[Rfam]
This 413-nucleotide RNA sequence from Carpinus fangiana belongs to the Rfam family "Group I catalytic intron". Rfam describes the family as follows. Group I catalytic introns are large self-splicing ribozymes. They catalyse their own excision from mRNA, tRNA and rRNA precursors in a wide range of organisms. The core secondary structure consists of 9 paired regions (P1-P9).
RNA sequence: GUAACAAGGUUUCCACGAUUAAGUUCCGAGGAUCUGAUCCUUCUGCAUGUACACUUACAGAAGCCUUGAAAAGCAAACCCAAAAGGUUGGACUUACGACCCCCCCUCUACAGAUUAUAGGGGUGCUAGUUGCUUAAAGUCUUUUAAGCGGCGACACUAUCGAAUUGCGGGGAUACCCUAAAGACUAGUGGUACAAACUCAACUGUGAAAGCAUGUUGAGGGCCUAAGUUAACAGCUUAGGGUAUUGUAAAAAGUCACUAGUAUGAUUUGCAUGAGCAAUGAAAUGGGCAAUCCGCAGCCAAGGGCCUAAGGCUUUCUUUCUAAGCUAUGGUCAAGGUUCACAGACUAAGUGGUAGUGGGUGUGAGAGUUAUCUCAUGCUUAAGAUAUAGUCGGGCCCUGUCAGAAAUGUCAGG
Numbered sequence: 001g002u003a004a005c006a007a008g009g010u011u012u013c014c015a016c017g018a019u020u021a022a023g024u025u026c027c028g029a030g031g032a033u034c035u036g037a038u039c040c041u042u043c044u045g046c047a048u049g050u051a052c053a054c055u056u057a058c059a060g061a062a063g064c065c066u067u068g069a070a071a072a073g074c075a076a077a078c079c080c081a082a083a084a085g086g087u088u089g090g091a092c093u094u095a096c097g098a099c100c101c102c103c104c105c106u107c108u109a110c111a112g113a114u115u116a117u118a119g120g121g122g123u124g125c126u127a128g129u130u131g132c133u134u135a136a137a138g139u140c141u142u143u144u145a146a147g148c149g150g151c152g153a154c155a156c157u158a159u160c161g162a163a164u165u166g167c168g169g170g171g172a173u174a175c176c177c178u179a180a181a182g183a184c185u186a187g188u189g190g191u192a193c194a195a196a197c198u199c200a201a202c203u204g205u206g207a208a209a210g211c212a213u214g215u216u217g218a219g220g221g222c223c224u225a226a227g228u229u230a231a232c233a234g235c236u237u238a239g240g241g242u243a244u245u246g247u248a249a250a251a252a253g254u255c256a257c258u259a260g261u262a263u264g265a266u267u268u269g270c271a272u273g274a275g276c277a278a279u280g281a282a283a284u285g286g287g288c289a290a291u292c293c294g295c296a297g298c299c300a301a302g303g304g305c306c307u308a309a310g311g312c313u314u315u316c317u318u319u320c321u322a323a324g325c326u327a328u329g330g331u332c333a334a335g336g337u338u339c340a341c342a343g344a345c346u347a348a349g350u351g352g353u354a355g356u357g358g359g360u361g362u363g364a365g366a367g368u369u370a371u372c373u374c375a376u377g378c379u380u381a382a383g384a385u386a387u388a389g390u391c392g393g394g395c396c397c398u399g400u401c402a403g404a405a406a407u408g409u410c411a412g413g
Stems, first nucleotide, its partner, number of pairs: 005068009154357005160351002165296006175287003297337002302332001304331003311325004341392001343391005359378008398411002401408002

A search with the family's covariance model found it, with a score of 100 bits. Lineage of the source: Eukaryota > Magnoliopsida > Gunneridae > Pentapetalae > Carpinus.